[Rfam]
Nucleotides: 082
Base pairs, nucleotide, nucleotide: 004078005077006076010072011071012070013069014068016066017065018064019063020062023059024058026057027056028055030053031052032051033050
Number, partner (000 for none) and nucleotide at each position: 001000g002000c003000u004078u005077c006076u007000c008000c009000c010072u011071g012070g013069g014068u015000u016066g017065g018064g019063a020062u021000u022000u023059g024058u025000u026057g027056c028055a029000u030053u031052a032051c033050u034000u035000g036000u037000g038000g039000g040000u041000u042000c043000u044000c045000u046000g047000g048000a049000c050033a051032g052031u053030a054000u055028u056027g057026c058024a059023c060000u061000u062020g063019u064018c065017c066016c067000g068014g069013c070012c071011u072010g073000u074000g075000g076006a077005g078004a079000g080000g081000g082000a
mir-92 microRNA precursor family: an 82-nucleotide RNA sequence from Podarcis muralis. The base pairs follow the family's consensus structure, which was predicted with PFOLD. Its family is annotated with RISC complex and miRNA-mediated post-transcriptional gene silencing in the Gene Ontology. NCBI's taxonomy places the organism under Eukaryota, Deuterostomia, Laterata, Lacertidae, Podarcis.